The record is a 121-nucleotide RNA sequence from Anaerostipes butyraticus, which matches "TPP riboswitch aptamer (THI element)" in Rfam.
RNA sequence: AGUAACUGAAAUGGGAGCUUAAGAGGUAUGCUACUGACUGCCUCAGCUGAGAGGAAGCCCUGGCUUCGACCAUCGACCUGAUGCGGGUAAUGCCGCCGUAGGGAUUUGGACUAUUACCAAA
Numbered sequence: 001a002g003u004a005a006c007u008g009a010a011a012u013g014g015g016a017g018c019u020u021a022a023g024a025g026g027u028a029u030g031c032u033a034c035u036g037a038c039u040g041c042c043u044c045a046g047c048u049g050a051g052a053g054g055a056a057g058c059c060c061u062g063g064c065u066u067c068g069a070c071c072a073u074c075g076a077c078c079u080g081a082u083g084c085g086g087g088u089a090a091u092g093c094c095g096c097c098g099u100a101g102g103g104a105u106u107u108g109g110a111c112u113a114u115u116a117c118c119a120a121a
Stems, first nucleotide, its partner, number of pairs: 006109005011073004017047003021043001054067005077102004083096004
Taxonomically the source falls in Anaerostipes (Bacteria, Bacillati, Clostridia, Lachnospiraceae).